[Rfam]
RNA: RT-15 RNA
RNA sequence: CCGCGCCCGCUACCUGACCGUCACGGCGAUCAGGUCUGUGCGAAUUGAAUCUGGUCGUGCCGCUGGCCUUUCAGGCCACCGCCAUGCGCAUCACGGAAACCUCCAGCGGAAUGGCUGGACAGGUCCGGCGCAGUUUCCUGGCUGAGCAAUCGGCUGGGCGACGUAGAUAGCACGAUAGGUCG
Numbered sequence: 001c002c003g004c005g006c007c008c009g010c011u012a013c014c015u016g017a018c019c020g021u022c023a024c025g026g027c028g029a030u031c032a033g034g035u036c037u038g039u040g041c042g043a044a045u046u047g048a049a050u051c052u053g054g055u056c057g058u059g060c061c062g063c064u065g066g067c068c069u070u071u072c073a074g075g076c077c078a079c080c081g082c083c084a085u086g087c088g089c090a091u092c093a094c095g096g097a098a099a100c101c102u103c104c105a106g107c108g109g110a111a112u113g114g115c116u117g118g119a120c121a122g123g124u125c126c127g128g129c130g131c132a133g134u135u136u137c138c139u140g141g142c143u144g145a146g147c148a149a150u151c152g153g154c155u156g157g158g159c160g161a162c163g164u165a166g167a168u169a170g171c172a173c174g175a176u177a178g179g180u181c182g
Stems, first nucleotide, its partner, number of pairs: 004042003012035006019028003055175006061081002064078005085132005094127004100123002103118005134161002137158009